Shown here is a 212-nucleotide RNA sequence from Artemisia annua, a member of the family "Plant small nucleolar RNA U3".
It scores 136 bits against the family's covariance model.
Rfam describes the family as follows. Small nucleolar RNAs (snoRNAs) are involved in the processing and modification of rRNA in the nucleolus.
For this family Rfam cites "The uRNA database" (Zwieb, Nucleic Acids Res, 1997).
Rfam 15.1 lists 3,759 matches to the family in 258 species.
Lineage of the source: Eukaryota > Streptophytina > Euphyllophyta > Pentapetalae > Artemisia.
[Rfam]
RNA sequence: ACGACCUUACUUGAACAGGAUCUGUUCUAUAGGCUCGUACCUCUGUAUUCUUGAUUCCUCAAGAGACAGAAACCCAUGUCUGAAACCCAUGUCUGGUUGAUGCAUCAUGGCCAUGUGGCUAGAGCGUGAUUGACUCGGCCAUAGCUCAGUAGAGAAUCGUUGUCAGCCCAUCUAAUGGGUCUCGGCAUGGUCACAUGGUUGUCUGACAGACU
Numbered sequence: 001a002c003g004a005c006c007u008u009a010c011u012u013g014a015a016c017a018g019g020a021u022c023u024g025u026u027c028u029a030u031a032g033g034c035u036c037g038u039a040c041c042u043c044u045g046u047a048u049u050c051u052u053g054a055u056u057c058c059u060c061a062a063g064a065g066a067c068a069g070a071a072a073c074c075c076a077u078g079u080c081u082g083a084a085a086c087c088c089a090u091g092u093c094u095g096g097u098u099g100a101u102g103c104a105u106c107a108u109g110g111c112c113a114u115g116u117g118g119c120u121a122g123a124g125c126g127u128g129a130u131u132g133a134c135u136c137g138g139c140c141a142u143a144g145c146u147c148a149g150u151a152g153a154g155a156a157u158c159g160u161u162g163u164c165a166g167c168c169c170a171u172c173u174a175a176u177g178g179g180u181c182u183c184g185g186c187a188u189g190g191u192c193a194c195a196u197g198g199u200u201g202u203c204u205g206a207c208a209g210a211c212u
Base pairs, nucleotide, nucleotide: 001038002037003035005033006032007031013027014026015025016024017023018022043069044068045067046066048064049063051061053059091211092210093209094208095207110199111198112197113196114195115194116193117192118191119190120189121188123161124160125159126158133150134149135148137146138145139144163185164184166181167179168178169177170176